[Rfam]
About this RNA:
c-di-AMP riboswitch aptamer (ydaO/yuaA leader): a 138-nucleotide RNA sequence from Bailinhaonella thermotolerans. Gene Ontology terms of the family: regulation of gene expression and cyclic-di-AMP binding. A search with the family's covariance model found it, with a score of 88 bits.
RNA sequence: UCGGCCGGACCGCUGAAUCCCGCUCGCGGGAACCGGGGACCCACCUCUUCCGGGGUGAAUCCGUGGCCAGGUCCGCGGUAGGGCGCCUCCUGGCCCGAACCCGUCAGCUAACCCGGUAGGCGGACGAGGAGAGGAGAG
Numbered sequence: 001u002c003g004g005c006c007g008g009a010c011c012g013c014u015g016a017a018u019c020c021c022g023c024u025c026g027c028g029g030g031a032a033c034c035g036g037g038g039a040c041c042c043a044c045c046u047c048u049u050c051c052g053g054g055g056u057g058a059a060u061c062c063g064u065g066g067c068c069a070g071g072u073c074c075g076c077g078g079u080a081g082g083g084c085g086c087c088u089c090c091u092g093g094c095c096c097g098a099a100c101c102c103g104u105c106a107g108c109u110a111a112c113c114c115g116g117u118a119g120g121c122g123g124a125c126g127a128g129g130a131g132a133g134g135a136g137a138g
Stems, first nucleotide, its partner, number of pairs: 011122004018031003032117006042052001053102003061078004081096004